[Rfam]
Rfam assigns this 270-nucleotide RNA from Geococcyx californianus to the family "Small Cajal body specific RNA 6".
The family's consensus secondary structure is taken from published work.
A reference for the family is Huttenhofer et al. (2001), "RNomics: an experimental approach that identifies 201 candidates for novel, small, non-messenger RNAs in mouse", EMBO J.
U88 is small Cajal body specific RNA (scaRNA). scaRNAs are a novel class of small nuclear RNAs which localise to the Cajal bodies.
It scores 104 bits against the family's covariance model.
Lineage of the source: Eukaryota > Gnathostomata > Amniota > Coelurosauria > Geococcyx.
The family has 17 seed sequences and 1,309 matches in Rfam 15.1.

RNA sequence: GGUCGAUGAUGAGUAGUGCAAGAUCUGAGGGCACAGGGGAAUAAAACUCUGCUACCAUCUUGGCUCCCAGCAGUCCCUGUUCUGUCAUGCCAUAGUAGAGUUGUGAUUGAGGACAGGAUUGCUGACAGUUUGGGAUUCAUUCAGUUCCAGUUCUCCACAGUGAAGGGAGUUGUGGCACUGAAUAUUGUCCAACAGAACUGAUUAAGAGGAGCUCGUGGUAUGGAGUAUCUUAAUUAGUUUUGCGUGAUCUAAAGUUUUCAAGCUGAGACC
Numbered sequence: 001g002g003u004c005g006a007u008g009a010u011g012a013g014u015a016g017u018g019c020a021a022g023a024u025c026u027g028a029g030g031g032c033a034c035a036g037g038g039g040a041a042u043a044a045a046a047c048u049c050u051g052c053u054a055c056c057a058u059c060u061u062g063g064c065u066c067c068c069a070g071c072a073g074u075c076c077c078u079g080u081u082c083u084g085u086c087a088u089g090c091c092a093u094a095g096u097a098g099a100g101u102u103g104u105g106a107u108u109g110a111g112g113a114c115a116g117g118a119u120u121g122c123u124g125a126c127a128g129u130u131u132g133g134g135a136u137u138c139a140u141u142c143a144g145u146u147c148c149a150g151u152u153c154u155c156c157a158c159a160g161u162g163a164a165g166g167g168a169g170u171u172g173u174g175g176c177a178c179u180g181a182a183u184a185u186u187g188u189c190c191a192a193c194a195g196a197a198c199u200g201a202u203u204a205a206g207a208g209g210a211g212c213u214c215g216u217g218g219u220a221u222g223g224a225g226u227a228u229c230u231u232a233a234u235u236a237g238u239u240u241u242g243c244g245u246g247a248u249c250u251a252a253a254g255u256u257u258u259c260a261a262g263c264u265g266a267g268a269c270c
Base pairs, nucleotide, nucleotide: 001270002269003268004267035250036249037248046226047225048224049223050222051221064211065210066209067208068124069123070122071121072120073119074118081110082109084107085106086105087104088103089102090100132190134189135188136187147175148174149173153169154168155167156166